[Rfam]
RNA sequence: UGUCUCCUCCAAUCUCUUGAAUUGGAUUCAGCCCGCGAACCGAAAGGCCAGCGGGCUUUUUUUC
Number, nucleotide and partner (000 for none) at each position: 001u000002g000003u000004c000005u000006c000007c000008u026009c025010c024011a023012a022013u020014c019015u000016c000017u000018u000019g014020a013021a000022u012023u011024g010025g009026a008027u000028u000029c000030a057031g056032c055033c054034c053035g052036c051037g000038a000039a000040c000041c000042g000043a000044a000045a000046g000047g000048c000049c000050a000051g036052c035053g034054g033055g032056c031057u030058u000059u000060u000061u000062u000063u000064c000
RNA: Betaproteobacteria toxic small RNA
Organism: Noviherbaspirillum humi